[Rfam]
RNA: c-di-AMP riboswitch aptamer (ydaO/yuaA leader)
RNA sequence: UAUCGCGCCGAGCUCCAUCCAGUAGGCGGGGGCAGACCGUACCUGGAUGGAGGCGGGGGACCCAACGGGUCCGCCGUGACCGACCCGGAGCCGCUCCGCGGCUCCUUGGGGUGAAGCCGGCGUCGUCUCGCUGCCGAGCACGACGCGGCCGGGUGGCCUCUCCAACCCGAACCCGACAGCUGACCUCGCAGGCGCUAGACGAGAGGAACU
Numbered sequence: 001u002a003u004c005g006c007g008c009c010g011a012g013c014u015c016c017a018u019c020c021a022g023u024a025g026g027c028g029g030g031g032g033c034a035g036a037c038c039g040u041a042c043c044u045g046g047a048u049g050g051a052g053g054c055g056g057g058g059g060a061c062c063c064a065a066c067g068g069g070u071c072c073g074c075c076g077u078g079a080c081c082g083a084c085c086c087g088g089a090g091c092c093g094c095u096c097c098g099c100g101g102c103u104c105c106u107u108g109g110g111g112u113g114a115a116g117c118c119g120g121c122g123u124c125g126u127c128u129c130g131c132u133g134c135c136g137a138g139c140a141c142g143a144c145g146c147g148g149c150c151g152g153g154u155g156g157c158c159u160c161u162c163c164a165a166c167c168c169g170a171a172c173c174c175g176a177c178a179g180c181u182g183a184c185c186u187c188g189c190a191g192g193c194g195c196u197a198g199a200c201g202a203g204a205g206g207a208a209c210u
Stems, first nucleotide, its partner, number of pairs: 006194004013052010053189006063108002109174003117148003151168004